[Rfam]
RNA: U1 spliceosomal RNA
Organism: Amazona guildingii
RNA sequence: AUCCUUACCUGGCAGGGAAGACACCAUGAUCAAGCAGGUGGUUUUCCCAGGGCAAGGCUCGUCCCUUGCACUCUGGGUGUGCUGACCCCUGUGAUUUCCUCAAAUGCAGGAAACUGGACUGCAUAAUUUGUUGUAGUGGGGGCCUGCAUUUUUUUGCUUGUUUGUU
Numbered sequence: 001a002u003c004c005u006u007a008c009c010u011g012g013c014a015g016g017g018a019a020g021a022c023a024c025c026a027u028g029a030u031c032a033a034g035c036a037g038g039u040g041g042u043u044u045u046c047c048c049a050g051g052g053c054a055a056g057g058c059u060c061g062u063c064c065c066u067u068g069c070a071c072u073c074u075g076g077g078u079g080u081g082c083u084g085a086c087c088c089c090u091g092u093g094a095u096u097u098c099c100u101c102a103a104a105u106g107c108a109g110g111a112a113a114c115u116g117g118a119c120u121g122c123a124u125a126a127u128u129u130g131u132u133g134u135a136g137u138g139g140g141g142g143c144c145u146g147c148a149u150u151u152u153u154u155u156g157c158u159u160g161u162u163u164g165u166u
Stems, first nucleotide, its partner, number of pairs: 012122004016048002019045003023042005049090004056083003060079005092117001094115001095113003099109002138165001140163004146157003